Streptomyces-metH RNA: a 141-nucleotide sequence from Streptomyces chartreusis.
Pairs were carried over by alignment from the consensus structure, which is taken from published work.
The sequence is in the family's curated seed alignment.
RNA sequence: CGCGUCCGUCCCGUGGACGCCCUGCCCAUCCCGGCCCGCUCCCGGUUAGGCUGGCGCCGUGCGCCCAUCCCCGGAUGCCCUCCGUGUGUCCGGGAAGCCGCAUAGCCGACAGCCGUCGCACCCGAGGGAGCCCUUUACAUG
Numbered sequence: 001c002g003c004g005u006c007c008g009u010c011c012c013g014u015g016g017a018c019g020c021c022c023u024g025c026c027c028a029u030c031c032c033g034g035c036c037c038g039c040u041c042c043c044g045g046u047u048a049g050g051c052u053g054g055c056g057c058c059g060u061g062c063g064c065c066c067a068u069c070c071c072c073g074g075a076u077g078c079c080c081u082c083c084g085u086g087u088g089u090c091c092g093g094g095a096a097g098c099c100g101c102a103u104a105g106c107c108g109a110c111a112g113c114c115g116u117c118g119c120a121c122c123c124g125a126g127g128g129a130g131c132c133c134u135u136u137a138c139a140u141g
Stems, first nucleotide, its partner, number of pairs: 060102004068095004105119002108117003